[Rfam]
The record is a 128-nucleotide sequence from Corynebacterium doosanense, which matches "ALIL pseudoknot" in Rfam. Rfam links the family to the GO term positive regulation of translational frameshifting. The family's consensus secondary structure is taken from published work. For this family Rfam cites "Apical loop-internal loop RNA pseudoknots: a new type of stimulator of -1 translational frameshifting in bacteria" (Mazauric et al., J Biol Chem, 2008). The match comes from Rfam's covariance-model search (62 bits). The organism belongs to Corynebacterium doosanense, within Bacteria.

RNA sequence: AGCUUUUUCGCGGCGGAGCUCGACCGCCCACACAAGUGAUCGUGCGAUUCAUCGACGACAACCGUGCCCAGUUCGGGGUCGAGCCCAUCAUCGGUGUCCUGGCUACCACCAGCGCGAAGAUAGCCCUG
Numbered sequence: 001a002g003c004u005u006u007u008u009c010g011c012g013g014c015g016g017a018g019c020u021c022g023a024c025c026g027c028c029c030a031c032a033c034a035a036g037u038g039a040u041c042g043u044g045c046g047a048u049u050c051a052u053c054g055a056c057g058a059c060a061a062c063c064g065u066g067c068c069c070a071g072u073u074c075g076g077g078g079u080c081g082a083g084c085c086c087a088u089c090a091u092c093g094g095u096g097u098c099c100u101g102g103c104u105a106c107c108a109c110c111a112g113c114g115c116g117a118a119g120a121u122a123g124c125c126c127u128g
Base pairs, nucleotide, nucleotide: 012028013027014026015025016024074128075127076126077125078124085123088120089119091117092116093115